[Rfam]
RNA sequence: AUUGUGUCAGUGAUGCUAACAAAAUUUGCGUUAUCUAUCUGAAAUUUUCCAUAGUGGAAUUUGAAGAUAACAAAAUCUGCAUUAUCUAUAUGCAAU
Number, nucleotide and partner (000 for none) at each position: 001a096002u095003u094004g093005u092006g091007u090008c000009a000010g000011u000012g000013a000014u000015g000016c000017u000018a000019a000020c000021a000022a000023a000024a000025u000026u000027u000028g000029c000030g000031u000032u000033a000034u000035c000036u000037a000038u000039c000040u000041g000042a000043a000044a000045u000046u000047u000048u000049c000050c000051a000052u000053a000054g000055u000056g000057g000058a000059a000060u000061u000062u000063g000064a000065a000066g000067a000068u000069a000070a000071c000072a000073a000074a000075a000076u000077c000078u000079g000080c000081a000082u000083u000084a000085u000086c000087u000088a000089u000090a007091u006092g005093c004094a003095a002096u001
RNA: Small nucleolar RNA snoR27
Organism: Ziziphus jujuba